A member of the RNA family "rne-II RNA" from Pseudomonas sp. MRSN 12121, 283 nucleotides long.
The match comes from Rfam's covariance-model search (267 bits).
The source organism's lineage runs through Bacteria, Pseudomonadati, Pseudomonadales, Pseudomonadaceae and Pseudomonas.
[Rfam]
RNA sequence: AUACGUGUAGGGUGGAGAUGCACAACCGUCGGACUGUGUAGCAUUAGGCUUUAUCAAGACGCUUCAUAUCGUCCACAGCCACCGGUUGAUUCCUCCUCCUGAUUGAGCUUUUGCUUAAGAGGUGCCUUUUGUCACCCCAGCAAGCAGGACGCGUGAGUCGCGAGUUCGCCCCAACUGGCCGGAUUCGCUAGACACUGGAGCGGCCAACCGCUCCUGACGCACCUGACACCGACCGUGAGAAGUCGUGUGUGCCGAACGCCGUUUCCGGCAGCCCGGAAACCGA
Numbered sequence: 001a002u003a004c005g006u007g008u009a010g011g012g013u014g015g016a017g018a019u020g021c022a023c024a025a026c027c028g029u030c031g032g033a034c035u036g037u038g039u040a041g042c043a044u045u046a047g048g049c050u051u052u053a054u055c056a057a058g059a060c061g062c063u064u065c066a067u068a069u070c071g072u073c074c075a076c077a078g079c080c081a082c083c084g085g086u087u088g089a090u091u092c093c094u095c096c097u098c099c100u101g102a103u104u105g106a107g108c109u110u111u112u113g114c115u116u117a118a119g120a121g122g123u124g125c126c127u128u129u130u131g132u133c134a135c136c137c138c139a140g141c142a143a144g145c146a147g148g149a150c151g152c153g154u155g156a157g158u159c160g161c162g163a164g165u166u167c168g169c170c171c172c173a174a175c176u177g178g179c180c181g182g183a184u185u186c187g188c189u190a191g192a193c194a195c196u197g198g199a200g201c202g203g204c205c206a207a208c209c210g211c212u213c214c215u216g217a218c219g220c221a222c223c224u225g226a227c228a229c230c231g232a233c234c235g236u237g238a239g240a241a242g243u244c245g246u247g248u249g250u251g252c253c254g255a256a257c258g259c260c261g262u263u264u265c266c267g268g269c270a271g272c273c274c275g276g277a278a279a280c281c282g283a
Stems, first nucleotide, its partner, number of pairs: 014096004023088006031080002036076003040050003058073004097149005152219003157193003160188004167181002170178002197214007226250004230245004261280007